RNA sequence: AAAAUGCAGGAGUAAUAACAAAAUUCUUGUUUUGUUAAGAAUUUUGUUAUUACUCCUG
Number, nucleotide and partner (000 for none) at each position: 001a000002a000003a000004a000005u000006g000007c058008a057009g056010g055011a054012g053013u052014a051015a050016u049017a048018a000019c000020a000021a044022a043023a000024u041025u040026c039027u038028u037029g036030u000031u000032u000033u000034g000035u000036u029037a028038a027039g026040a025041a024042u000043u022044u021045u000046g000047u000048u017049a016050u015051u014052a013053c012054u011055c010056c009057u008058g007
About this RNA: The family of this 58-nucleotide RNA from Coptis quinquesecta is "Plastid-psbA-4 3UTR RNA". The base pairs follow the family's consensus structure, which was predicted with LocARNA. Clan: Plastid-psbA 3UTR RNA clan. NCBI's taxonomy places the organism under Eukaryota, Euphyllophyta, Mesangiospermae, Ranunculaceae, Coptis. It is annotated as a cis-regulatory element.